A member of the RNA family "ZMP/ZTP riboswitch aptamer (pfl RNA motif)" from Micrococcus terreus, 100 nucleotides long.
RNA sequence: AGACCUGGUCGCGACUGGCGAGGGUGGGCCACCACCGGGGAGCGGCCGACCGUGGGUGGACCACGGUGGGGCGACUGGACCGACCGCCUGGGUCCGGACG
Numbered sequence: 001a002g003a004c005c006u007g008g009u010c011g012c013g014a015c016u017g018g019c020g021a022g023g024g025u026g027g028g029c030c031a032c033c034a035c036c037g038g039g040g041a042g043c044g045g046c047c048g049a050c051c052g053u054g055g056g057u058g059g060a061c062c063a064c065g066g067u068g069g070g071g072c073g074a075c076u077g078g079a080c081c082g083a084c085c086g087c088c089u090g091g092g093u094c095c096g097g098a099c100g
Stems, first nucleotide, its partner, number of pairs: 006048007015039002017088004024035004077095005
Dot-bracket structure: .....(((((((..(([[[[...((((....))))..))..)))))))............................(((((...]]]]..))))).....
Background:
Gene Ontology terms of the family: one-carbon metabolic process and regulation of purine nucleotide biosynthetic process. The base pairs follow the family's consensus structure, which is taken from published work.